[Rfam]
RNA sequence: AAACCGCCCCCUAAGUUUUGCAACCGUAGCAGUUUUGGCCCCCAAGGCCAAUUUUUGGUAAAAAUAAAAAGAAAUUAACAUGUGGAACCUCACUUAGGGUGCCACAUCAGCGUAGACCGAGUCAAAAUUGACCUUGGGGGCCAUAACUUCCACAGAUGCAAAACUUAGGGGUGGUUU
Numbered sequence: 001a002a003a004c005c006g007c008c009c010c011c012u013a014a015g016u017u018u019u020g021c022a023a024c025c026g027u028a029g030c031a032g033u034u035u036u037g038g039c040c041c042c043c044a045a046g047g048c049c050a051a052u053u054u055u056u057g058g059u060a061a062a063a064a065u066a067a068a069a070a071g072a073a074a075u076u077a078a079c080a081u082g083u084g085g086a087a088c089c090u091c092a093c094u095u096a097g098g099g100u101g102c103c104a105c106a107u108c109a110g111c112g113u114a115g116a117c118c119g120a121g122u123c124a125a126a127a128u129u130g131a132c133c134u135u136g137g138g139g140g141c142c143a144u145a146a147c148u149u150c151c152a153c154a155g156a157u158g159c160a161a162a163a164c165u166u167a168g169g170g171g172u173g174g175u176u177u
Stems, first nucleotide, its partner, number of pairs: 001177002004174005012167011024155001026153002029150001031148004036143010080107002083104003087100003

A member of the RNA family "MIR2619 microRNA precursor family" from Medicago truncatula, 177 nucleotides long. Lineage of the source: Eukaryota > Euphyllophyta > Pentapetalae > Fabales > Medicago. Gene Ontology terms of the family: RISC complex and miRNA-mediated post-transcriptional gene silencing. The match comes from Rfam's covariance-model search (119 bits).